[Rfam]
A member of the RNA family "M-box riboswitch aptamer (ykoK leader)" from Alkaliphilus sp., 162 nucleotides long.
The source organism's lineage runs through Bacteria, Bacillati, Peptostreptococcales, Natronincolaceae and Alkaliphilus.
Gene Ontology terms of the family: response to magnesium ion and regulation of gene expression.
M-box riboswitch, also know as ykoK leader is described as a metaloregulatory RNA that sense divalent metals and function as a genetic control element of genes related to divalent metal transport in bacteria. It was first reported upstream of the B.subtilis ykoK gene and genes with related functions in other bacteria.
RNA sequence: AUGAAUACAUGUUAGGUGAGGCUCCUGCAAAGAUAUAUGCUGCUGCCCAGAAAAAUCGAGAGAUUCCAAUGGGUCAACAAGAAUGAUCGUGAAGGUCAUUUUUAACGUAGCUGACGAAAGUCAAAGCUUUUCAGUGCUAAAGCUCAACGUUAAAGAAUACUA
Numbered sequence: 001a002u003g004a005a006u007a008c009a010u011g012u013u014a015g016g017u018g019a020g021g022c023u024c025c026u027g028c029a030a031a032g033a034u035a036u037a038u039g040c041u042g043c044u045g046c047c048c049a050g051a052a053a054a055a056u057c058g059a060g061a062g063a064u065u066c067c068a069a070u071g072g073g074u075c076a077a078c079a080a081g082a083a084u085g086a087u088c089g090u091g092a093a094g095g096u097c098a099u100u101u102u103u104a105a106c107g108u109a110g111c112u113g114a115c116g117a118a119a120g121u122c123a124a125a126g127c128u129u130u131u132c133a134g135u136g137c138u139a140a141a142g143c144u145c146a147a148c149g150u151u152a153a154a155g156a157a158u159a160c161u162a
Base pairs, nucleotide, nucleotide: 005158006157008155010153011148012147013093015144016143017142020138021137022136025134026133027132029130030129031128032127039111040110041109042108043107045074046073047072048071049070054065055064056063057062080102081101082100083099086096087095088094113122114121115120